Magnesium riboswitch aptamer (Magnesium responsive RNA element): a 119-nucleotide RNA from [Enterobacter] lignolyticus. It scores 98 bits against the family's covariance model. Its family is annotated with regulation of gene expression in the Gene Ontology. The base pairs follow the family's consensus structure, which is taken from published work. Rfam describes the family as follows. The Magnesium sensor RNA element is a cis-regulatory element that regulates the expression of the magnesium transporter protein MgtA. It is located in the 5' UTR of this gene.

[Rfam]
RNA sequence: CUUACCGGAGGCUUCAUGGAUCCCGAUCCCACUCCCCAUCAUCGAUGGAGCAUAACUUUUUCCCGGUAAGCCAGUCUUUAUCACUGCCUUACCGGUUUUGCGUGAGGCAGUGACGUCGU
Numbered sequence: 001c002u003u004a005c006c007g008g009a010g011g012c013u014u015c016a017u018g019g020a021u022c023c024c025g026a027u028c029c030c031a032c033u034c035c036c037c038a039u040c041a042u043c044g045a046u047g048g049a050g051c052a053u054a055a056c057u058u059u060u061u062c063c064c065g066g067u068a069a070g071c072c073a074g075u076c077u078u079u080a081u082c083a084c085u086g087c088c089u090u091a092c093c094g095g096u097u098u099u100g101c102g103u104g105a106g107g108c109a110g111u112g113a114c115g116u117c118g119u
Stems, first nucleotide, its partner, number of pairs: 001070008010061002017031003037050001039048002083111010